[Rfam]
RNA: Archaeal Small RNA 41
RNA sequence: AUAUACAGUACAGACCAAAAGUUUGGACACACCUUCUCAUUGAACUCAAUGAGAAGGUGUGUCCAAACUUUUGGUCUGUAUUGAAUACAGACCAAAAGUUUGGACACACAGU
Numbered sequence: 001a002u003a004u005a006c007a008g009u010a011c012a013g014a015c016c017a018a019a020a021g022u023u024u025g026g027a028c029a030c031a032c033c034u035u036c037u038c039a040u041u042g043a044a045c046u047c048a049a050u051g052a053g054a055a056g057g058u059g060u061g062u063c064c065a066a067a068c069u070u071u072u073g074g075u076c077u078g079u080a081u082u083g084a085a086u087a088c089a090g091a092c093c094a095a096a097a098g099u100u101u102g103g104a105c106a107c108a109c110a111g112u
Base pairs, nucleotide, nucleotide: 008015021045022044023043024042026041053109057107058106062104063103064102065101066100067099068098069097070096071095073093074092075091076090077089078088079087